MIR2907 microRNA precursor family: a 63-nucleotide sequence from Oryza sativa. The match comes from Rfam's covariance-model search (65 bits). NCBI's taxonomy places the organism under Eukaryota, Viridiplantae, Tracheophyta, Poales, Oryza sativa. The family's consensus secondary structure was predicted with RNAalifold. Rfam links the family to the GO terms RISC complex and miRNA-mediated post-transcriptional gene silencing.
[Rfam]
RNA sequence: GCGCCCCUUCCUCCGCCCACUCGGCCGCCACGUGGCAGCCGACUGAGGGCCUCGGGGCGGCGC
Numbered sequence: 001g002c003g004c005c006c007c008u009u010c011c012u013c014c015g016c017c018c019a020c021u022c023g024g025c026c027g028c029c030a031c032g033u034g035g036c037a038g039c040c041g042a043c044u045g046a047g048g049g050c051c052u053c054g055g056g057g058c059g060g061c062g063c
Stems, first nucleotide, its partner, number of pairs: 001061002005057004015050004021042005028035002
Dot-bracket structure: ((..((((......((((..(((((..((....))..)))))....))))...))))..))..